[Rfam]
RNA: epsC RNA
Organism: Cohnella pontilimi
RNA sequence: AGGUAAUGCCUCCUGCACCUAUAUCACUGGAGGCACUCGGUCACGCUGUGGGUUUGCGAACCUUAGACGUUCAUCGUCGAGGGUGUGACGUGAGGAUGGGUUUGAUGCCCU
Numbered sequence: 001a002g003g004u005a006a007u008g009c010c011u012c013c014u015g016c017a018c019c020u021a022u023a024u025c026a027c028u029g030g031a032g033g034c035a036c037u038c039g040g041u042c043a044c045g046c047u048g049u050g051g052g053u054u055u056g057c058g059a060a061c062c063u064u065a066g067a068c069g070u071u072c073a074u075c076g077u078c079g080a081g082g083g084u085g086u087g088a089c090g091u092g093a094g095g096a097u098g099g100g101u102u103u104g105a106u107g108c109c110c111u
Stems, first nucleotide, its partner, number of pairs: 001020004007035007036094004040089008050063005066078004098110004